[Rfam]
RNA sequence: CCCAGAGGUAUUGAUAGGUGAUGUCAGCAUCUAAUGCUGAUCACAUGAAUUACACCAACCUGCGCGGAUGCGCAGGUUUUUUUU
Numbered sequence: 001c002c003c004a005g006a007g008g009u010a011u012u013g014a015u016a017g018g019u020g021a022u023g024u025c026a027g028c029a030u031c032u033a034a035u036g037c038u039g040a041u042c043a044c045a046u047g048a049a050u051u052a053c054a055c056c057a058a059c060c061u062g063c064g065c066g067g068a069u070g071c072g073c074a075g076g077u078u079u080u081u082u083u084u
Stems, first nucleotide, its partner, number of pairs: 017056004021046001023041006058077008
RNA: OmrA-B family